[Rfam]
A member of the RNA family "L4-Archaeoglobi ribosomal protein leades", 100 nucleotides long.
By type it is a cis-regulatory leader.
It is one of the family's seed sequences.
RNA sequence: CUGACGAGCGCGUCCGGGUCAAUUGCGGACUGCAACACCCGAUCUCCCUCCCCGUUCCUCCAUCGAUGGAGGUCGAGGAAGGGGAACGCGUCACCAUCAG
Numbered sequence: 001c002u003g004a005c006g007a008g009c010g011c012g013u014c015c016g017g018g019u020c021a022a023u024u025g026c027g028g029a030c031u032g033c034a035a036c037a038c039c040c041g042a043u044c045u046c047c048c049u050c051c052c053c054g055u056u057c058c059u060c061c062a063u064c065g066a067u068g069g070a071g072g073u074c075g076a077g078g079a080a081g082g083g084g085a086a087c088g089c090g091u092c093a094c095c096a097u098c099a100g
Base pairs, nucleotide, nucleotide: 001100002099003098004097008091009090010089011088012087013086015041016040017039018038023035024034025033026032027031043085044084045083046082047081049079050078051077053075